[Rfam]
A member of the RNA family "Group II catalytic intron D1-D4-2" from Ectothiorhodospiraceae bacterium BW-2, 119 nucleotides long. The pairing is the family consensus, mapped onto this sequence. About the family: Group II introns are found in rRNA, tRNA and mRNA of organelles in fungi, plants and protists, and also in mRNA in bacteria. Rfam 15.1 lists 1,231 matches to the family in 625 species.
RNA sequence: GGAGGAAGACCCUCCGAAGUCUGCCUGCAGGGGUCGGCUUCAAACCACCGUCGAGCGGCAUUGGCUGAAGAGCGUUGUCGUGAGCAUCGAAGGAAAGGCUCAUCCAAGAGGUGAGUCGA
Numbered sequence: 001g002g003a004g005g006a007a008g009a010c011c012c013u014c015c016g017a018a019g020u021c022u023g024c025c026u027g028c029a030g031g032g033g034u035c036g037g038c039u040u041c042a043a044a045c046c047a048c049c050g051u052c053g054a055g056c057g058g059c060a061u062u063g064g065c066u067g068a069a070g071a072g073c074g075u076u077g078u079c080g081u082g083a084g085c086a087u088c089g090a091a092g093g094a095a096a097g098g099c100u101c102a103u104c105c106a107a108g109a110g111g112u113g114a115g116u117c118g119a
Stems, first nucleotide, its partner, number of pairs: 001015005016041006023034004048093002051090004055081002058078003062074002098117001099115005